Small nucleolar RNA SNORA8: a 138-nucleotide RNA sequence from Dipodomys ordii. NCBI's taxonomy places the organism under Eukaryota, Gnathostomata, Boreoeutheria, Rodentia, Dipodomys. ACA8 is a member of the H/ACA class of snoRNA that guide the sites of modification of uridines to pseudouridines.

RNA sequence: UGCACUGUAUGGUAUCUGCACUCAGCAAUACCUCCUGCUGAUGUGUUCAAAGGACAGUGCAAUAGAAGUUCAAUAUCUGGCAUCAUUGGUUUUCUUGGGUUUGUCCAUGGUAAACCUGGUAUUUCUAUUGAUACAAUA
Numbered sequence: 001u002g003c004a005c006u007g008u009a010u011g012g013u014a015u016c017u018g019c020a021c022u023c024a025g026c027a028a029u030a031c032c033u034c035c036u037g038c039u040g041a042u043g044u045g046u047u048c049a050a051a052g053g054a055c056a057g058u059g060c061a062a063u064a065g066a067a068g069u070u071c072a073a074u075a076u077c078u079g080g081c082a083u084c085a086u087u088g089g090u091u092u093u094c095u096u097g098g099g100u101u102u103g104u105c106c107a108u109g110g111u112a113a114a115c116c117u118g119g120u121a122u123u124u125c126u127a128u129u130g131a132u133a134c135a136a137u138a
Stems, first nucleotide, its partner, number of pairs: 002060006015053003018046004024039004063127007070119003080106001082104002

Notes:
The family is grouped with related families in Rfam's "SNORA8 clan".